MIR2655 microRNA precursor family: a 251-nucleotide RNA sequence from Trifolium subterraneum. A search with the family's covariance model found it, with a score of 144 bits. Taxonomically the source falls in Trifolium (Eukaryota, rosids, Papilionoideae, Hologalegina). Pairs were carried over by alignment from the consensus structure, which was predicted with RNAalifold.

RNA sequence: CCCUUAUCUUUUAAAAGUUUCAAGUUGGUCCCUUAUCUUUAUUUUAGGUUUCAAAUUGGUCCCUUCCGUCAAUUUUUUAACUAUUUCCGUUAAAUUUGGACACGUGACAAACAAAUUUGGACACGUGGCAUACUUGGACAGAUGAUAGGUGUCCAAAUUUAACGGUAACAGUAAAAAAAUUGACGGAAUGGACCAACUUGAAACCUAAAAAAAGAUAAGGGACCAACUUGAAACUUUUAAAAGAUAAGGGA
Numbered sequence: 001c002c003c004u005u006a007u008c009u010u011u012u013a014a015a016a017g018u019u020u021c022a023a024g025u026u027g028g029u030c031c032c033u034u035a036u037c038u039u040u041a042u043u044u045u046a047g048g049u050u051u052c053a054a055a056u057u058g059g060u061c062c063c064u065u066c067c068g069u070c071a072a073u074u075u076u077u078u079a080a081c082u083a084u085u086u087c088c089g090u091u092a093a094a095u096u097u098g099g100a101c102a103c104g105u106g107a108c109a110a111a112c113a114a115a116u117u118u119g120g121a122c123a124c125g126u127g128g129c130a131u132a133c134u135u136g137g138a139c140a141g142a143u144g145a146u147a148g149g150u151g152u153c154c155a156a157a158u159u160u161a162a163c164g165g166u167a168a169c170a171g172u173a174a175a176a177a178a179a180u181u182g183a184c185g186g187a188a189u190g191g192a193c194c195a196a197c198u199u200g201a202a203a204c205c206u207a208a209a210a211a212a213a214g215a216u217a218a219g220g221g222a223c224c225a226a227c228u229u230g231a232a233a234c235u236u237u238u239a240a241a242a243g244a245u246a247a248g249g250g251a
Stems, first nucleotide, its partner, number of pairs: 002249007023228003027224003031220010042210002045207003